[Rfam]
RNA sequence: CAGCACUUGAUACACCAUGCUCUGCAGCCUAGCCUGUGUCAAAGGCUUGUGCUGUGUGGUGGUAGCUGCGUUGGAGAAGCAUAGUAUGAAAACAAAAGCCACGAGUCUUUAAGCCCAGUGUGUCAAGACACACACUGACGUAUAACUCAGUGGCACAACU
Numbered sequence: 001c002a003g004c005a006c007u008u009g010a011u012a013c014a015c016c017a018u019g020c021u022c023u024g025c026a027g028c029c030u031a032g033c034c035u036g037u038g039u040c041a042a043a044g045g046c047u048u049g050u051g052c053u054g055u056g057u058g059g060u061g062g063u064a065g066c067u068g069c070g071u072u073g074g075a076g077a078a079g080c081a082u083a084g085u086a087u088g089a090a091a092a093c094a095a096a097a098g099c100c101a102c103g104a105g106u107c108u109u110u111a112a113g114c115c116c117a118g119u120g121u122g123u124c125a126a127g128a129c130a131c132a133c134a135c136u137g138a139c140g141u142a143u144a145a146c147u148c149a150g151u152g153g154c155a156c157a158a159c160u
Base pairs, nucleotide, nucleotide: 003082006079007078008077014071015070019066020065021064022061023056024055025054026053027052028051029049031047032046033045034044035043098154099153100152118133119132120131121130122129123128134151135150136149137148138147